[Rfam]
RNA: L31-Actinobacteria ribosomal protein leader
RNA sequence: GCGGUACCGGUUCCCGGCGGGCGUCAGGCUCGCCGACCCGGCGGCC
Numbered sequence: 001g002c003g004g005u006a007c008c009g010g011u012u013c014c015c016g017g018c019g020g021g022c023g024u025c026a027g028g029c030u031c032g033c034c035g036a037c038c039c040g041g042c043g044g045c046c
Stems, first nucleotide, its partner, number of pairs: 003046003007041004015035008